[Rfam]
RNA sequence: CUCUUAUCCAGAGAGGUGGAGGGACUGGCCCGAUGAAACCCGGCAACCGUUGUGACGUUAUCCGUCAGAAAAAGGUGCCAAUUCCAGCAAGGCAGAUGCCUUGUAAAGAUGAGAG
Numbered sequence: 001c002u003c004u005u006a007u008c009c010a011g012a013g014a015g016g017u018g019g020a021g022g023g024a025c026u027g028g029c030c031c032g033a034u035g036a037a038a039c040c041c042g043g044c045a046a047c048c049g050u051u052g053u054g055a056c057g058u059u060a061u062c063c064g065u066c067a068g069a070a071a072a073a074g075g076u077g078c079c080a081a082u083u084c085c086a087g088c089a090a091g092g093c094a095g096a097u098g099c100c101u102u103g104u105a106a107a108g109a110u111g112a113g114a115g
Stems, first nucleotide, its partner, number of pairs: 001115008013041001015040003021031003025087004042079004047075002050070002083107001088103006
RNA: SAM riboswitch aptamer (S box leader)